[Rfam]
RNA sequence: GAGGUCCUGAACCAAAGCCCCUCGAGGACAAUGUGCGUCUUUCUAUUGACUUCAGUGGGCUUAGGAUCAGGCCCUU
Numbered sequence: 001g002a003g004g005u006c007c008u009g010a011a012c013c014a015a016a017g018c019c020c021c022u023c024g025a026g027g028a029c030a031a032u033g034u035g036c037g038u039c040u041u042u043c044u045a046u047u048g049a050c051u052u053c054a055g056u057g058g059g060c061u062u063a064g065g066a067u068c069a070g071g072c073c074c075u076u
Base pairs, nucleotide, nucleotide: 002075003074004073006071007070008069009068010067012065013064015062016061018059019058020057021055022054024053025052026051027050029048030047031046032045033044

Rfam assigns this 76-nucleotide sequence from Ophiophagus hannah to the family "mir-1677 microRNA precursor family". Rfam's curators put it in the seed alignment. The family has 5 seed sequences and 310 matches in Rfam 15.1. Pairs were carried over by alignment from the consensus structure, which was predicted with RNAalifold.